Record summary: The record is a 191-nucleotide RNA sequence from Spermophilus dauricus, which matches "U2 spliceosomal RNA" in Rfam. A search with the family's covariance model found it, with a score of 161 bits.

[Rfam]
RNA sequence: ACAGACUCUUGGCCUUUUGGCUAAGAUCAAGCAUAGUCUCUGUUCUUAUCAGUUCACUAUCUGAUAUGUCCUCUAUCUGAGGACAAUAUAUUAAAUGGAUUUGGGGAGCAGGGAGAUGGAAUAGGAGCUUGCUCCGUCCACUCCACGCAUCGACCUGGUAUUGCAGUACUUCCAGGAACGGUGCACCCAUC
Numbered sequence: 001a002c003a004g005a006c007u008c009u010u011g012g013c014c015u016u017u018u019g020g021c022u023a024a025g026a027u028c029a030a031g032c033a034u035a036g037u038c039u040c041u042g043u044u045c046u047u048a049u050c051a052g053u054u055c056a057c058u059a060u061c062u063g064a065u066a067u068g069u070c071c072u073c074u075a076u077c078u079g080a081g082g083a084c085a086a087u088a089u090a091u092u093a094a095a096u097g098g099a100u101u102u103g104g105g106g107a108g109c110a111g112g113g114a115g116a117u118g119g120a121a122u123a124g125g126a127g128c129u130u131g132c133u134c135c136g137u138c139c140a141c142u143c144c145a146c147g148c149a150u151c152g153a154c155c156u157g158g159u160a161u162u163g164c165a166g167u168a169c170u171u172c173c174a175g176g177a178a179c180g181g182u183g184c185a186c187c188c189a190u191c
Base pairs, nucleotide, nucleotide: 007026008025009024011022012021013020014019047066048065049064050063051062052061068084069083070082071081072080073079112144113143114142115141118138119137124135125134126133127132147184148183149182150181151180152179154176155175156174157173158172
Source information: The family's consensus secondary structure is taken from published work.